iscR stability element: a 107-nucleotide sequence from Pluralibacter gergoviae. By type it is a cis-regulatory element. The family's consensus secondary structure is taken from published work. NCBI's taxonomy places the organism under Bacteria, Pseudomonadati, Pseudomonadota, Gammaproteobacteria, Pluralibacter. Gene Ontology term of the family: response to host iron concentration.

[Rfam]
RNA sequence: AAAAAAGAUUUAAGAAUCAGGCCGGGCAUUUGCUGUCCGUCGACACGGUCGUACAUCCAGCCGGUUGCCUGGUUCCUUGCAUUGAGUGAUGUACGGAGUUAAAGAGC
Number, nucleotide and partner (000 for none) at each position: 001a000002a000003a000004a000005a000006a000007g000008a000009u000010u098011u097012a000013a000014g075015a074016a073017u072018c071019a070020g069021g068022c067023c039024g038025g037026g036027c035028a034029u000030u000031u000032g000033c000034u028035g027036u026037c025038c024039g023040u000041c000042g000043a065044c064045a000046c063047g062048g061049u000050c000051g000052u000053a000054c000055a000056u000057c000058c000059a000060g000061c048062c047063g046064g044065u043066u000067g022068c021069c020070u019071g018072g017073u016074u015075c014076c000077u000078u093079g000080c091081a090082u089083u000084g000085a000086g000087u000088g000089a082090u081091g080092u000093a078094c000095g000096g000097a011098g010099u000100u000101a000102a000103a000104g000105a000106g000107c000